[Rfam]
The family of this 108-nucleotide sequence from Carya illinoinensis is "Small nucleolar RNA R64/Z200 family". NCBI's taxonomy places the organism under Eukaryota, Embryophyta, Spermatophyta, rosids, Carya. For this family Rfam cites "Purified box C/D snoRNPs are able to reproduce site-specific 2'-O-methylation of target RNA in vitro" (Galardi et al., Mol Cell Biol, 2002). Rfam classes the family as a C/D-box small nucleolar RNA. Rfam links the family to the GO terms nucleolus and RNA processing.

RNA sequence: AUUUGCUGUGAUGAAUCAUGAAACCAUUCACAUGUCAGACUUCAGAGAUUUUUCCUCUUUCAUAGGGGGAAAGAUCUAUGAGAUUAUAUUCAUGUUUCUGAGCAUGAU
Numbered sequence: 001a002u003u004u005g006c007u008g009u010g011a012u013g014a015a016u017c018a019u020g021a022a023a024c025c026a027u028u029c030a031c032a033u034g035u036c037a038g039a040c041u042u043c044a045g046a047g048a049u050u051u052u053u054c055c056u057c058u059u060u061c062a063u064a065g066g067g068g069g070a071a072a073g074a075u076c077u078a079u080g081a082g083a084u085u086a087u088a089u090u091c092a093u094g095u096u097u098c099u100g101a102g103c104a105u106g107a108u
Stems, first nucleotide, its partner, number of pairs: 001108003004104003047076013